[Rfam]
RNA sequence: AACGACCGGUCGGACACGUAUGCCACGGCAAGUGCCCGGCCCACAAGUGGAGGCUUCCGAACUCCCACCUGACCGCCCCCCGGGACGGCGGGUCACCGGUCAGGCGGUCCCGCUUCGGCGGCGACCGGCCCGAAAGCGCGCCCCGCGGUCACCGUGGCGGUGCUCCGGUAGUUCGAGGAGCCCCGUUGUGAUCGUCCGGGGCAUUUUCU
Dot-bracket structure: ...((((((..((......................))(((((.((.((((((.........)).)))).)).((((((...))).))).))))).)))))).(((.(..((((....))))....).))).........(((((((((....((((((((.(((((..........))))).)))))))).)))..)))))).......
Numbered sequence: 001a002a003c004g005a006c007c008g009g010u011c012g013g014a015c016a017c018g019u020a021u022g023c024c025a026c027g028g029c030a031a032g033u034g035c036c037c038g039g040c041c042c043a044c045a046a047g048u049g050g051a052g053g054c055u056u057c058c059g060a061a062c063u064c065c066c067a068c069c070u071g072a073c074c075g076c077c078c079c080c081c082g083g084g085a086c087g088g089c090g091g092g093u094c095a096c097c098g099g100u101c102a103g104g105c106g107g108u109c110c111c112g113c114u115u116c117g118g119c120g121g122c123g124a125c126c127g128g129c130c131c132g133a134a135a136g137c138g139c140g141c142c143c144c145g146c147g148g149u150c151a152c153c154g155u156g157g158c159g160g161u162g163c164u165c166c167g168g169u170a171g172u173u174c175g176a177g178g179a180g181c182c183c184c185g186u187u188g189u190g191a192u193c194g195u196c197c198g199g200g201g202c203a204u205u206u207u208c209u
Stems, first nucleotide, its partner, number of pairs: 004101006012037002038094005044071002047068004051063002073088003076084003103130003107126001110121004140202006146194003153190008162181005
About this RNA:
The family of this 209-nucleotide RNA from Streptomyces cyaneogriseus is "Streptomyces RNA 1601". Pairs were carried over by alignment from the consensus structure. On this family, see Vockenhuber et al., RNA Biol 2011: "Deep sequencing-based identification of small non-coding RNAs in Streptomyces coelicolor". Rfam classes the family as a small RNA. From the family's description: Identified by deep sequencing of transcriptome at the end of exponential growth phase.